RNA sequence: GCAGACUCACUCUGUCCUGAACUGCAGUCUUCAGUUCAGGCACUUUUUCCGUCUGCAAGAGUAAUCAUUCACGUGAGUGACAAUUGCCUUCUUGCUUGUAGAAGGCUGUUACAACUGCUGUUGGGACAUUGAG
Numbered sequence: 001g002c003a004g005a006c007u008c009a010c011u012c013u014g015u016c017c018u019g020a021a022c023u024g025c026a027g028u029c030u031u032c033a034g035u036u037c038a039g040g041c042a043c044u045u046u047u048u049c050c051g052u053c054u055g056c057a058a059g060a061g062u063a064a065u066c067a068u069u070c071a072c073g074u075g076a077g078u079g080a081c082a083a084u085u086g087c088c089u090u091c092u093u094g095c096u097u098g099u100a101g102a103a104g105g106c107u108g109u110u111a112c113a114a115c116u117g118c119u120g121u122u123g124g125g126a127c128a129u130u131g132a133g
Base pairs, nucleotide, nucleotide: 001056002055003054004053005052006051014043015042016040017039018038019037020036022034023033024032068124069123071121072120073118074117077115078114082110086106087105088104089103